[Rfam]
RNA sequence: CUUCUACUUUAACAUGGAGGUACUUUCUGUGUUUAAAAAGGUAAGUGCUUCCAUGUUUUGGUAGGAG
Numbered sequence: 001c002u003u004c005u006a007c008u009u010u011a012a013c014a015u016g017g018a019g020g021u022a023c024u025u026u027c028u029g030u031g032u033u034u035a036a037a038a039a040g041g042u043a044a045g046u047g048c049u050u051c052c053a054u055g056u057u058u059u060g061g062u063a064g065g066a067g
Stems, first nucleotide, its partner, number of pairs: 001067003005063004011057015027041002
Rfam assigns this 67-nucleotide RNA from Monodelphis domestica to the family "mir-302 microRNA precursor family". Taxonomically the source falls in Monodelphis (Eukaryota, Bilateria, Sarcopterygii, Amniota). The family is grouped with related families in Rfam's "mir-290 clan".